[Rfam]
RNA sequence: UGGUAGAUGCACCCUGAUAACUCACUCCCCUAGUUAGGUUAACACCAACUGGGGUUUUUUUAU
Numbered sequence: 001u002g003g004u005a006g007a008u009g010c011a012c013c014c015u016g017a018u019a020a021c022u023c024a025c026u027c028c029c030c031u032a033g034u035u036a037g038g039u040u041a042a043c044a045c046c047a048a049c050u051g052g053g054g055u056u057u058u059u060u061u062a063u
Stems, first nucleotide, its partner, number of pairs: 002013003028054008037046002
RNA: Nitrogen stress-induced RNA 1
Organism: Nostoc flagelliforme